[Rfam]
RNA sequence: CGGGACCUACGGGGCCCUUAAAUUGCGGCGGGACCGACCCGUCGCCACAAUCAACGGAAGACAGAAA
Number, nucleotide and partner (000 for none) at each position: 001c000002g017003g016004g015005a000006c014007c013008u012009a000010c000011g000012g008013g007014g006015c004016c003017c002018u000019u000020a000021a000022a000023u000024u000025g000026c000027g043028g042029c041030g040031g039032g038033a000034c000035c000036g000037a000038c032039c031040c030041g029042u028043c027044g000045c000046c000047a000048c000049a000050a000051u000052c000053a000054a000055c000056g000057g000058a000059a000060g000061a000062c000063a000064g000065a000066a000067a000
The family of this 67-nucleotide RNA from Palleronia rufa is "L2-Alphaproteobacteria ribosomal protein leader". For this family Rfam cites "Discovery of 20 novel ribosomal leader candidates in bacteria and archaea" (Eckert and Weinberg, BMC Microbiol, 2020). Rfam's curators put it in the seed alignment.